MIR535 microRNA precursor family: a 96-nucleotide RNA sequence from Manihot esculenta.
The base pairs follow the family's consensus structure, which was predicted with RNAalifold.
The match comes from Rfam's covariance-model search (66 bits).
Rfam 15.1 lists 544 matches to the family in 108 species.

[Rfam]
RNA sequence: GCACAUUUAUGACAACGAUAGGGAGCACGCUUGUAAACAGUCAUGACCCUAACACAAAAUGCUGACAAACGUGCUCUCUCUCGUUGUCAACCAAUA
Numbered sequence: 001g002c003a004c005a006u007u008u009a010u011g012a013c014a015a016c017g018a019u020a021g022g023g024a025g026c027a028c029g030c031u032u033g034u035a036a037a038c039a040g041u042c043a044u045g046a047c048c049c050u051a052a053c054a055c056a057a058a059a060u061g062c063u064g065a066c067a068a069a070c071g072u073g074c075u076c077u078c079u080c081u082c083g084u085u086g087u088c089a090a091c092c093a094a095u096a
Stems, first nucleotide, its partner, number of pairs: 010089005016083002020079002023076001025074005031068004